The family of this 82-nucleotide RNA sequence from Globodera rostochiensis is "SmY spliceosomal RNA". A search with the family's covariance model found it, with a score of 42 bits. The family has 61 seed sequences and 408 matches in Rfam 15.1. A reference for the family is Jia et al. (2007), "Systematic identification of non-coding RNA 2,2,7-trimethylguanosine cap structures in Caenorhabditis elegans", BMC Mol Biol. Pairs were carried over by alignment from the consensus structure, which is taken from published work. Lineage of the source: Eukaryota > Metazoa > Nematoda > Heteroderinae > Globodera.

[Rfam]
RNA sequence: AGCGGAGACCUUUUUUUGUAAGGGCCUUGUUCUGAAGACCCUUCUGGACAAUUUUUGGCAGGCCUAGCAUGAGCUAGGCCUU
Numbered sequence: 001a002g003c004g005g006a007g008a009c010c011u012u013u014u015u016u017u018g019u020a021a022g023g024g025c026c027u028u029g030u031u032c033u034g035a036a037g038a039c040c041c042u043u044c045u046g047g048a049c050a051a052u053u054u055u056u057g058g059c060a061g062g063c064c065u066a067g068c069a070u071g072a073g074c075u076a077g078g079c080c081u082u
Base pairs, nucleotide, nucleotide: 022041023040024039026037027036028035060081061080062079063078064077065076066075067074068073